[Rfam]
RNA sequence: UUCUACCUCAGAGGAGUGAAUCUUAGAACACAAGAUUGAUUGGUUAGACAACAAUAUCAUCUAUUGUCAUAUGGACUAUAUUUGUUUCUUGCUAAUUUAUUUUGUGUUCUCAGGUCACCCCUUUGAGCAAACC
Numbered sequence: 001u002u003c004u005a006c007c008u009c010a011g012a013g014g015a016g017u018g019a020a021u022c023u024u025a026g027a028a029c030a031c032a033a034g035a036u037u038g039a040u041u042g043g044u045u046a047g048a049c050a051a052c053a054a055u056a057u058c059a060u061c062u063a064u065u066g067u068c069a070u071a072u073g074g075a076c077u078a079u080a081u082u083u084g085u086u087u088c089u090u091g092c093u094a095a096u097u098u099a100u101u102u103u104g105u106g107u108u109c110u111c112a113g114g115u116c117a118c119c120c121c122u123u124u125g126a127g128c129a130a131a132c133c
Base pairs, nucleotide, nucleotide: 007127008126011123012122013121014120016118017117018116019115025110026109027108028107029106030105031104032103033102034101035100036099
RNA: MIR398 microRNA precursor family